[Rfam]
RNA sequence: CAAGUAAGACAGGUGAUCGCGGCUGUAAUUGCCGAAAGGCAGCAGGUGAGGAAAGUCCGGGCUUCGCAGGGCAGGGUGCCGGAUAACGUCCGGUGGAGGCGACUCCAAGGCCAGUGCAACAGAAAUGUACCGCCUGACAGACUCUUAUGAGAAUGGACAGGUAAGGGUGGAAGGGCAGUGUAAGAGACUACCGCCCGGCCGGUAACGACCGGGGCACAUGUAAACCCCACUCGAAGCAAGACCGUGCAGAGACAAUUUGGCGGCCCGUCAAGUCUCAGGUAGGUCGCUGGAACCUGAUGGCAACAUCAGGUCUAGAUAGAUGAUCGCUCAACGACAUAACCCGGCUUAUCGUCUUGCUUGCUUU
Numbered sequence: 001c002a003a004g005u006a007a008g009a010c011a012g013g014u015g016a017u018c019g020c021g022g023c024u025g026u027a028a029u030u031g032c033c034g035a036a037a038g039g040c041a042g043c044a045g046g047u048g049a050g051g052a053a054a055g056u057c058c059g060g061g062c063u064u065c066g067c068a069g070g071g072c073a074g075g076g077u078g079c080c081g082g083a084u085a086a087c088g089u090c091c092g093g094u095g096g097a098g099g100c101g102a103c104u105c106c107a108a109g110g111c112c113a114g115u116g117c118a119a120c121a122g123a124a125a126u127g128u129a130c131c132g133c134c135u136g137a138c139a140g141a142c143u144c145u146u147a148u149g150a151g152a153a154u155g156g157a158c159a160g161g162u163a164a165g166g167g168u169g170g171a172a173g174g175g176c177a178g179u180g181u182a183a184g185a186g187a188c189u190a191c192c193g194c195c196c197g198g199c200c201g202g203u204a205a206c207g208a209c210c211g212g213g214g215c216a217c218a219u220g221u222a223a224a225c226c227c228c229a230c231u232c233g234a235a236g237c238a239a240g241a242c243c244g245u246g247c248a249g250a251g252a253c254a255a256u257u258u259g260g261c262g263g264c265c266c267g268u269c270a271a272g273u274c275u276c277a278g279g280u281a282g283g284u285c286g287c288u289g290g291a292a293c294c295u296g297a298u299g300g301c302a303a304c305a306u307c308a309g310g311u312c313u314a315g316a317u318a319g320a321u322g323a324u325c326g327c328u329c330a331a332c333g334a335c336a337u338a339a340c341c342c343g344g345c346u347u348a349u350c351g352u353c354u355u356g357c358u359u360g361c362u363u364u
Base pairs, nucleotide, nucleotide: 001360002359003358004357005356006355007354008353009352010351011349012328013327014326015325016324017323018322020048021047023045024044025043026042053347054346055345057344058343059342060341061340062236063235064234065233069266070265071264072263074232075231076230077229078228079093080092081091082090083089094108095106096105097104098103109227110226114225115224116221117220118219130166131165132162133161134160135159136158138156140154174192175191177189178188179187193215194213195212196211197210198209200207201206240285241284242283243282249276250275251274252273253272257271258270259269260268261267292311293310294309295308296307297306298305299304
Dot-bracket structure: ((((((((((((((((((.((.((((...............)))).))....[[[.[[[[[((((...[[[[.((((((((((.....)))))(((((....)))).)((...(((((...........(((((((.(.(.............).).)))))..)).......((.(((.......))).))((((((.((....)).))))).)...)))..)))))))))))))...((((.....(((((...(((((.]]]])))))))))).....))))......((((((((....))))))))..........)))))))...........]]]]]]]].).))))))))))....

Shown here is a 364-nucleotide sequence from Dorea formicigenerans, a member of the family "Bacterial RNase P class A".
A search with the family's covariance model found it, with a score of 285 bits.
The family's consensus secondary structure is taken from published work.
By type it is a ribozyme.
NCBI's taxonomy places the organism under Bacteria, Bacillota, Clostridia, Dorea, Dorea formicigenerans.
From the family's description: Ribonuclease P (RNase P) is a ubiquitous endoribonuclease, found in archaea, bacteria and eukarya as well as chloroplasts and mitochondria.
The family is grouped with related families in Rfam's "RNaseP clan".